RNA sequence: GGGUUAAAAAGGCAAACUAUUUGAAAAAAUAGGACGCAAAGCCCAGGAUCUAAGGCCGUCUUUGGAAGGACUGUUAUGAUCGCCUGGCUACUAAU
Numbered sequence: 001g002g003g004u005u006a007a008a009a010a011g012g013c014a015a016a017c018u019a020u021u022u023g024a025a026a027a028a029a030u031a032g033g034a035c036g037c038a039a040a041g042c043c044c045a046g047g048a049u050c051u052a053a054g055g056c057c058g059u060c061u062u063u064g065g066a067a068g069g070a071c072u073g074u075u076a077u078g079a080u081c082g083c084c085u086g087g088c089u090a091c092u093a094a095u
Stems, first nucleotide, its partner, number of pairs: 012037002017032006040089004045085003048080003055074002058071005
RNA: c-di-GMP-I riboswitch aptamer